This 46-nucleotide RNA from Daphnia pulex belongs to the Rfam family "Histone 3' UTR stem-loop". The family's RNA type in Rfam is cis-regulatory element. For this family Rfam cites "Formation of the 3' end of histone mRNA" (Dominski and Marzluff, Gene, 1999). From the family's description: The mRNAs of metazoan histone genes lack a poly-A tail. 3' end processing occurs at a site between a highly conserved stem-loop (modelled by this family) and a purine rich region around 20 nts downstream (the histone downstream element, or HDE).

RNA sequence: CAAUCGGCCCUUUUCAGGGCCACUAUUUACUUAAAGAAAACGAUUU
Numbered sequence: 001c002a003a004u005c006g007g008c009c010c011u012u013u014u015c016a017g018g019g020c021c022a023c024u025a026u027u028u029a030c031u032u033a034a035a036g037a038a039a040a041c042g043a044u045u046u
Stems, first nucleotide, its partner, number of pairs: 006021006